[Rfam]
RNA: Vault RNA
RNA sequence: GGGCUGGCGUAGUCGAGUGGUUACUUCGUGAAAUACAAACCUGUCUUCUAAACAGUUUACGUGGGUUCGAUACCCAUAGAUCCACUGACGCUAUUUAGCCUUUUU
Numbered sequence: 001g002g003g004c005u006g007g008c009g010u011a012g013u014c015g016a017g018u019g020g021u022u023a024c025u026u027c028g029u030g031a032a033a034u035a036c037a038a039a040c041c042u043g044u045c046u047u048c049u050a051a052a053c054a055g056u057u058u059a060c061g062u063g064g065g066u067u068c069g070a071u072a073c074c075c076a077u078a079g080a081u082c083c084a085c086u087g088a089c090g091c092u093a094u095u096u097a098g099c100c101u102u103u104u105u
Stems, first nucleotide, its partner, number of pairs: 002100006012089004017085004026070003